[Rfam]
RNA sequence: AUGGAUCUUUUUGCGGUCUGGGCUUGCUGUUCCAUCAGCCUGUAGCCAGGAAGCCCUUACCCCAAAAAGCAUCUA
Numbered sequence: 001a002u003g004g005a006u007c008u009u010u011u012u013g014c015g016g017u018c019u020g021g022g023c024u025u026g027c028u029g030u031u032c033c034a035u036c037a038g039c040c041u042g043u044a045g046c047c048a049g050g051a052a053g054c055c056c057u058u059a060c061c062c063c064a065a066a067a068a069g070c071a072u073c074u075a
Base pairs, nucleotide, nucleotide: 007069008068009067010066011065012064013063015061016060017059020056021055022054023053025051027049028048
The family of this 75-nucleotide sequence from Albula goreensis is "mir-129 microRNA precursor family". The literature on the family includes a 2002 paper in Curr Biol by Lagos-Quintana et al., "Identification of tissue-specific microRNAs from mouse". The family's consensus secondary structure was predicted with RNAalifold. The organism belongs to Albula, within Eukaryota. It scores 89 bits against the family's covariance model.